SAM riboswitch aptamer (S box leader): a 106-nucleotide sequence from Kocuria soli.

RNA sequence: UAACCAUCCAGAGCGACCGAGAGACCUGGCUCGUCGACGUCGCAGCAACCCCGGUUGGCAGCUCACGCAGCGCAACCCCCGGUGCUCCCGCCAGGACCGAUGGAAA
Numbered sequence: 001u002a003a004c005c006a007u008c009c010a011g012a013g014c015g016a017c018c019g020a021g022a023g024a025c026c027u028g029g030c031u032c033g034u035c036g037a038c039g040u041c042g043c044a045g046c047a048a049c050c051c052c053g054g055u056u057g058g059c060a061g062c063u064c065a066c067g068c069a070g071c072g073c074a075a076c077c078c079c080c081g082g083u084g085c086u087c088c089c090g091c092c093a094g095g096a097c098c099g100a101u102g103g104a105a106a
Base pairs, nucleotide, nucleotide: 001106004103005102006101007100008099013043014042015041016040017039021032022031023030026094027093028092029091044086045085046084047083049082050081053077054076055075056074057073090098